[Rfam]
RNA sequence: GUACGAUAAAGGCAAACCCGCUGAAAAACGGGGACGCAAAACUAGAGGGGCUAAAGCUAUAAAAAUAGCCAUGCCAGCCAGUUUCCGAU
Numbered sequence: 001g002u003a004c005g006a007u008a009a010a011g012g013c014a015a016a017c018c019c020g021c022u023g024a025a026a027a028a029c030g031g032g033g034a035c036g037c038a039a040a041a042c043u044a045g046a047g048g049g050g051c052u053a054a055a056g057c058u059a060u061a062a063a064a065a066u067a068g069c070c071a072u073g074c075c076a077g078c079c080a081g082u083u084u085c086c087g088a089u
Base pairs, nucleotide, nucleotide: 012037013036017032018031019030020029022027040083041082042081043080047079048078049075050074051073056069057068058067059066
Dot-bracket structure: ...........((...((((.(....).))))...))..((((...(((((....((((......))))...)))..))))))......